[Rfam]
RNA sequence: ACGUACAUAUUGCCGAAUUUCCACAGAUUGGAAAACGGGGGAUCCACACCCGGGUGAAUUGAUCUCGCAACAGAGUGAUCAUAGGGAACCUUCAACCGAACCCUUAAGCUAACCUCGUAGGCACCGGAAGGGGACAAU
Numbered sequence: 001a002c003g004u005a006c007a008u009a010u011u012g013c014c015g016a017a018u019u020u021c022c023a024c025a026g027a028u029u030g031g032a033a034a035a036c037g038g039g040g041g042a043u044c045c046a047c048a049c050c051c052g053g054g055u056g057a058a059u060u061g062a063u064c065u066c067g068c069a070a071c072a073g074a075g076u077g078a079u080c081a082u083a084g085g086g087a088a089c090c091u092u093c094a095a096c097c098g099a100a101c102c103c104u105u106a107a108g109c110u111a112a113c114c115u116c117g118u119a120g121g122c123a124c125c126g127g128a129a130g131g132g133g134a135c136a137a138u
Base pairs, nucleotide, nucleotide: 011123012122013121014120018034019033020032021031022030023029035118036117037116038115039114040113052103053102054101060081061080062079063078084097085096
c-di-AMP riboswitch aptamer (ydaO/yuaA leader): a 138-nucleotide RNA from Paenibacillus rigui. NCBI's taxonomy places the organism under Bacteria, Bacillati, Bacillota, Caryophanales, Paenibacillus. The match comes from Rfam's covariance-model search (67 bits). This family represents a conserved RNA structure found upstream of the ydaO and yuaA genes in Bacillus subtilis and related genes in other bacteria. The ydaO/yuaA element is thought to act as a genetic 'off' switch for the ydaO and yuaA genes in its native state. It is believed that the element may be triggered during osmotic shock leading to activation of ydaO, a predicted amino acid transporter gene, and members of the yuaA-yubG operon which code for KtrA and KtrB K+ transporters.